[Rfam]
ASpks TB sRNA: a 69-nucleotide RNA from Amycolatopsis mediterranei.

RNA sequence: CUUCACCGACCCGAGCCACAGCGGCGUUUCCCGGUUCUGGCCGUAGGUGGCCAGCAGCGCCUCGGCCUC
Numbered sequence: 001c002u003u004c005a006c007c008g009a010c011c012c013g014a015g016c017c018a019c020a021g022c023g024g025c026g027u028u029u030c031c032c033g034g035u036u037c038u039g040g041c042c043g044u045a046g047g048u049g050g051c052c053a054g055c056a057g058c059g060c061c062u063c064g065g066c067c068u069c
Stems, first nucleotide, its partner, number of pairs: 015025003031065001032059002037054003041050003

By type it is an antisense RNA. The organism belongs to Amycolatopsis mediterranei, within Bacteria. A search with the family's covariance model found it, with a score of 71 bits.